[Rfam]
RNA: Rhizobiales sRNA Atu_C9
Organism: Hoeflea prorocentri
RNA sequence: GGUUAACCGCAGGGAGGUCAGCUAUGGGAUUGGUGCGUUCGCUCAAUGUCCUGGUGAUCGGUGCAGCAUUUCUAUUUGUCGCGUUGAUGUUAUUCCUCUAGGCACCGACGCUUGGCAGCCGGCAGGACCGGCCAGCCGGAAACAGACAGCGGGGGUGGCAAUCGCCACCCCCGUU
Numbered sequence: 001g002g003u004u005a006a007c008c009g010c011a012g013g014g015a016g017g018u019c020a021g022c023u024a025u026g027g028g029a030u031u032g033g034u035g036c037g038u039u040c041g042c043u044c045a046a047u048g049u050c051c052u053g054g055u056g057a058u059c060g061g062u063g064c065a066g067c068a069u070u071u072c073u074a075u076u077u078g079u080c081g082c083g084u085u086g087a088u089g090u091u092a093u094u095c096c097u098c099u100a101g102g103c104a105c106c107g108a109c110g111c112u113u114g115g116c117a118g119c120c121g122g123c124a125g126g127a128c129c130g131g132c133c134a135g136c137c138g139g140a141a142a143c144a145g146a147c148a149g150c151g152g153g154g155g156u157g158g159c160a161a162u163c164g165c166c167a168c169c170c171c172c173g174u175u
Stems, first nucleotide, its partner, number of pairs: 017050001019048002026042001028040002148175012